[Rfam]
RNA sequence: AGGUCAUUUCAAAGAGGGCUGAUGGAACCAAAUCCUAGAGCCCUUAACGCUGUGACCAAAGAUUGAAUUCUCCAUUGGAUAUAAUAGUCACUCGAUAGUGCUGUGUUUUCCUGAUGGAGAUACAAGC
Dot-bracket structure: .((((((......(((((((..(((........)).).)))))))......))))))...........(((((...(((....((((.((((....))))))))....)))....))))).......

This 127-nucleotide RNA sequence from Cervus hanglu belongs to the Rfam family "Small nucleolar RNA SNORA25". Gene Ontology terms of the family: RNA processing and nucleolus. NCBI's taxonomy places the organism under Eukaryota, Teleostomi, Tetrapoda, Ruminantia, Cervus hanglu. By type it is an H/ACA-box small nucleolar RNA.